[Rfam]
The family of this 87-nucleotide RNA from Danio rerio is "mir-729 microRNA precursor family". Pairs were carried over by alignment from the consensus structure, which was predicted with RNAalifold. NCBI's taxonomy places the organism under Eukaryota, Neopterygii, Otophysi, Danioninae, Danio. Its family is annotated with miRNA-mediated post-transcriptional gene silencing and RISC complex in the Gene Ontology. The sequence is in the family's curated seed alignment.

RNA sequence: GCCAUCCAGUGACCCGGGGUUGUAUUGUAACCAAGCUGUAAGUGUCCAUGAUGCAUGGGUAUGAUACGACCUGGGUUACAGAAUGGU
Numbered sequence: 001g002c003c004a005u006c007c008a009g010u011g012a013c014c015c016g017g018g019g020u021u022g023u024a025u026u027g028u029a030a031c032c033a034a035g036c037u038g039u040a041a042g043u044g045u046c047c048a049u050g051a052u053g054c055a056u057g058g059g060u061a062u063g064a065u066a067c068g069a070c071c072u073g074g075g076u077u078a079c080a081g082a083a084u085g086g087u
Base pairs, nucleotide, nucleotide: 001087002086003085004084005083007081012077014075015074017072018071019070020069021068022067023066024065025064026063027062028061029060031058032057033056035054036053037050038049039048